Shown here is a 126-nucleotide sequence from Abrus precatorius, a member of the family "Small nucleolar RNA snoR77". The family's RNA type in Rfam is H/ACA-box small nucleolar RNA. Taxonomically the source falls in Abrus (Eukaryota, Spermatophyta, Mesangiospermae, rosids). The base pairs follow the family's consensus structure, which was predicted with WAR.
RNA sequence: AGGCAGCCUUCUUGCCACCAUUAUAAAUGGCAUGUGAGGUGUUAAACUGCUCAUAAAGCAAAUGCUUUUGCUCUUCAGACUUGCUGAGAUUUUCUCUGAAGCUGGUCUAGUAAGCUCAAGUACAUU
Numbered sequence: 001a002g003g004c005a006g007c008c009u010u011c012u013u014g015c016c017a018c019c020a021u022u023a024u025a026a027a028u029g030g031c032a033u034g035u036g037a038g039g040u041g042u043u044a045a046a047c048u049g050c051u052c053a054u055a056a057a058g059c060a061a062a063u064g065c066u067u068u069u070g071c072u073c074u075u076c077a078g079a080c081u082u083g084c085u086g087a088g089a090u091u092u093u094c095u096c097u098g099a100a101g102c103u104g105g106u107c108u109a110g111u112a113a114g115c116u117c118a119a120g121u122a123c124a125u126u
Stems, first nucleotide, its partner, number of pairs: 002043004007039002009036001011034001013032005065120003070115003077108005083102003088094002